[Rfam]
RNA sequence: CAUGGUUUUCCAUCUGUGUCUGGUGGUAUGGUCUACUUGUGUUUUGCAUUUAGACUGUACUGCUCACACAAACCCUGUGGCCAAAGAUGAACUUGAGAUCAUAGUACUGGUCUAGUGAUGUCUCCAGGACACUCCUCCCACUGGCCAGCCUCCACACUCUCAAACAUCU
Numbered sequence: 001c002a003u004g005g006u007u008u009u010c011c012a013u014c015u016g017u018g019u020c021u022g023g024u025g026g027u028a029u030g031g032u033c034u035a036c037u038u039g040u041g042u043u044u045u046g047c048a049u050u051u052a053g054a055c056u057g058u059a060c061u062g063c064u065c066a067c068a069c070a071a072a073c074c075c076u077g078u079g080g081c082c083a084a085a086g087a088u089g090a091a092c093u094u095g096a097g098a099u100c101a102u103a104g105u106a107c108u109g110g111u112c113u114a115g116u117g118a119u120g121u122c123u124c125c126a127g128g129a130c131a132c133u134c135c136u137c138c139c140a141c142u143g144g145c146c147a148g149c150c151u152c153c154a155c156a157c158u159c160u161c162a163a164a165c166a167u168c169u
Stems, first nucleotide, its partner, number of pairs: 001077002017070003021066003024062006031055005038048003094162005107148006114142004120132002123129002